[Rfam]
RNA sequence: CAUGAGCAGGAUCGCCAUCCGUCAGCGCGUUGCGCCCACGGGUGCCGUUCCG
Numbered sequence: 001c002a003u004g005a006g007c008a009g010g011a012u013c014g015c016c017a018u019c020c021g022u023c024a025g026c027g028c029g030u031u032g033c034g035c036c037c038a039c040g041g042g043u044g045c046c047g048u049u050c051c052g
Stems, first nucleotide, its partner, number of pairs: 016044007025035004
Dot-bracket structure: ...............(((((((..((((...))))..)))))))........
RNA: ffh sRNA